[Rfam]
RNA sequence: AUAUGACUUGUGGGUUUCCCUUUGUCAUCCUAUGCCUGGAGAUCAGUGAGGCAAGGAGAACAAAGGGAUGUUCAGCUGUCAUUCAU
Numbered sequence: 001a002u003a004u005g006a007c008u009u010g011u012g013g014g015u016u017u018c019c020c021u022u023u024g025u026c027a028u029c030c031u032a033u034g035c036c037u038g039g040a041g042a043u044c045a046g047u048g049a050g051g052c053a054a055g056g057a058g059a060a061c062a063a064a065g066g067g068a069u070g071u072u073c074a075g076c077u078g079u080c081a082u083u084c085a086u
Base pairs, nucleotide, nucleotide: 017068018067019066020065021064022063024061025060028057029056030055031054034052035051036050037049